[Rfam]
Nucleotides: 170
Stems, first nucleotide, its partner, number of pairs: 009161004015155003021151003026146002029143007037135002040132008049122003053118001055117004060112002
Number, partner (000 for none) and nucleotide at each position: 001000g002000c003000c004000a005000g006000g007000a008000a009161g010160a011159g012158g013000a014000a015155g016154a017153a018000u019000g020000a021151g022150a023149g024000g025000a026146c027145c028000c029143a030142a031141g032140a033139g034138u035137a036000g037135u038134a039000u040132g041131a042130a043129u044128g045127g046126g047125a048000a049122c050121a051120u052000c053118g054000a055117g056116g057115a058114a059000a060112g061111c062000c063000u064000g065000a066000g067000c068000u069000u070000u071000c072000u073000a074000g075000a076000u077000u078000u079000c080000c081000u082000c083000u084000c085000c086000u087000u088000a089000c090000a091000a092000a093000g094000g095000a096000g097000a098000a099000a100000u101000c102000u103000a104000g105000c106000u107000c108000u109000u110000u111061g112060u113000a114058u115057u116056u117055c118053c119000g120051a121050u122049g123000c124000c125047u126046c127045c128044c129043a130042u131041u132040c133000c134038u135037a136000u137035u138034g139033u140032u141031c142030u143029u144000u145027g146026g147000u148000u149023c150022u151021c152000c153017u154016u155015c156000c157000c158012c159011u160010u161009u162000c163000u164000u165000u166000u167000g168000g169000c170000u
Shown here is a 170-nucleotide RNA from Triticum turgidum, a member of the family "MIR2118 microRNA precursor family". Rfam 15.1 lists 2,377 matches to the family in 45 species. Lineage of the source: Eukaryota > Viridiplantae > Magnoliopsida > Triticeae > Triticum turgidum. Its family is annotated with RISC complex and miRNA-mediated post-transcriptional gene silencing in the Gene Ontology. The family's consensus secondary structure was predicted with RNAalifold.